[Rfam]
RNA: Small nucleolar RNA ncR4
RNA sequence: GAUCUUAAGUGCAUUUGACGACCCGUCAGGUGCGGUGAAAUCUUUGGUUGAUAGUGUUGAACUUUGAGUUGCUGAUCUCAAG
Numbered sequence: 001g002a003u004c005u006u007a008a009g010u011g012c013a014u015u016u017g018a019c020g021a022c023c024c025g026u027c028a029g030g031u032g033c034g035g036u037g038a039a040a041u042c043u044u045u046g047g048u049u050g051a052u053a054g055u056g057u058u059g060a061a062c063u064u065u066g067a068g069u070u071g072c073u074g075a076u077c078u079c080a081a082g
Stems, first nucleotide, its partner, number of pairs: 001077004008070002011033005017027004041067002046063004051058001